[Rfam]
RNA sequence: ACAUGUUCAAGGCCUUAGCAGAAGUGCUCAUGAUGUAGGCUGUCAGAUUCCAAUGAAUCUGUGAUUUCUGCU
Number, nucleotide and partner (000 for none) at each position: 001a000002c000003a000004u000005g000006u000007u000008c000009a000010a000011g040012g000013c038014c000015u000016u000017a072018g071019c070020a069021g068022a067023a066024g036025u035026g034027c000028u000029c000030a000031u000032g000033a000034u026035g025036u024037a000038g013039g000040c011041u000042g000043u000044c061045a060046g059047a058048u057049u056050c055051c000052a000053a000054u000055g050056a049057a048058u047059c046060u045061g044062u000063g000064a000065u000066u023067u022068c021069u020070g019071c018072u017